A member of the RNA family "Small nucleolar RNA SNORD60" from Stegastes partitus, 89 nucleotides long. It scores 59 bits against the family's covariance model. Rfam 15.1 lists 825 matches to the family in 373 species. It is annotated as a C/D-box small nucleolar RNA. Clan: SNORD60 clan.
RNA sequence: AGCCAGUGAUGACAAACUAAAUAAACUUUUCUGACACCUACUAUGAGAGCUGAACUGCAGCUCCUGAUUCUAUCUUUGUUCUGAGGCUU
Numbered sequence: 001a002g003c004c005a006g007u008g009a010u011g012a013c014a015a016a017c018u019a020a021a022u023a024a025a026c027u028u029u030u031c032u033g034a035c036a037c038c039u040a041c042u043a044u045g046a047g048a049g050c051u052g053a054a055c056u057g058c059a060g061c062u063c064c065u066g067a068u069u070c071u072a073u074c075u076u077u078g079u080u081c082u083g084a085g086g087c088u089u
Stems, first nucleotide, its partner, number of pairs: 001088004049061004